[Rfam]
RNA sequence: GCCCGGCCUAGGUUUGGCCGCCGAAUAACGGGAUACCUUCACCCGUUGGCCGGGCGACUUCUUGAAGGG
Numbered sequence: 001g002c003c004c005g006g007c008c009u010a011g012g013u014u015u016g017g018c019c020g021c022c023g024a025a026u027a028a029c030g031g032g033a034u035a036c037c038u039u040c041a042c043c044c045g046u047u048g049g050c051c052g053g054g055c056g057a058c059u060u061c062u063u064g065a066a067g068g069g
Stems, first nucleotide, its partner, number of pairs: 001055008011022003028046005036069004